[Rfam]
RNA: GP20-a RNA
RNA sequence: UAUAGUCUCGCCCAAAGACAUUUAACUCUGGGCUCUAAUCAGCGGACACUGUAAACCGCAGUUACAAAUAACAGAUAUAAAGAUUGGAGGAAAGU
Numbered sequence: 001u002a003u004a005g006u007c008u009c010g011c012c013c014a015a016a017g018a019c020a021u022u023u024a025a026c027u028c029u030g031g032g033c034u035c036u037a038a039u040c041a042g043c044g045g046a047c048a049c050u051g052u053a054a055a056c057c058g059c060a061g062u063u064a065c066a067a068a069u070a071a072c073a074g075a076u077a078u079a080a081a082g083a084u085u086g087g088a089g090g091a092a093a094g095u
Stems, first nucleotide, its partner, number of pairs: 005019004010033005035087005042059004